Small nucleolar RNA Z13/snr52: a 104-nucleotide sequence from Tolypocladium paradoxum.
The family's consensus secondary structure was predicted with PFOLD.
A search with the family's covariance model found it, with a score of 91 bits.
Taxonomically the source falls in Tolypocladium (Eukaryota, Opisthokonta, Dikarya, Sordariomycetes).
The family has 42 seed sequences and 1,203 matches in Rfam 15.1.
Rfam links the family to the GO terms RNA processing and nucleolus.
It is annotated as a C/D-box small nucleolar RNA.
[Rfam]
RNA sequence: CCCUUCAUAAUGAUGAAAUAUUUCGGAUGUAAAAAACAUUGUCAUGUCGGAAUGCGCAAACAUACCAUGUCGAGAUUUCCGUUGCCUUCCUUCUGAUCGGAAGA
Number, nucleotide and partner (000 for none) at each position: 001c000002c000003c103004u102005u101006c000007a000008u000009a000010a000011u000012g000013a000014u000015g000016a000017a000018a000019u000020a000021u000022u000023u000024c081025g080026g079027a078028u000029g000030u000031a000032a000033a000034a000035a000036a000037c000038a000039u000040u000041g000042u000043c000044a000045u000046g000047u000048c000049g000050g000051a000052a000053u000054g000055c000056g000057c000058a000059a000060a000061c000062a000063u000064a000065c000066c000067a000068u000069g000070u000071c000072g000073a000074g000075a000076u000077u000078u027079c026080c025081g024082u000083u000084g000085c000086c000087u000088u000089c000090c000091u000092u000093c000094u000095g000096a000097u000098c000099g000100g000101a005102a004103g003104a000